Annotation:
Rfam assigns this 114-nucleotide sequence from Mola mola to the family "Small nucleolar RNA SNORD67".

[Rfam]
RNA sequence: GUUGAGAGUGAUGAGUUGCACUAAUUAGUUGGGGUGGCUGAUGCAGUGGCACCAACACCCCAAUCCGAGCCCACCUGCGGACACACGCUGUGCACAGGGGCCAUCUGACUCAAC
Numbered sequence: 001g002u003u004g005a006g007a008g009u010g011a012u013g014a015g016u017u018g019c020a021c022u023a024a025u026u027a028g029u030u031g032g033g034g035u036g037g038c039u040g041a042u043g044c045a046g047u048g049g050c051a052c053c054a055a056c057a058c059c060c061c062a063a064u065c066c067g068a069g070c071c072c073a074c075c076u077g078c079g080g081a082c083a084c085a086c087g088c089u090g091u092g093c094a095c096a097g098g099g100g101c102c103a104u105c106u107g108a109c110u111c112a113a114c
Stems, first nucleotide, its partner, number of pairs: 006111003025068002028065001029063004034058003040053001042051003

By type it is a C/D-box small nucleolar RNA. Its family is annotated with RNA processing and nucleolus in the Gene Ontology. For this family Rfam cites "RNomics: an experimental approach that identifies 201 candidates for novel, small, non-messenger RNAs in mouse" (Huttenhofer et al., EMBO J, 2001). From the family's description: snoRNA HBII-166 belongs to the C/D family of snoRNAs. The pairing is the family consensus, mapped onto this sequence.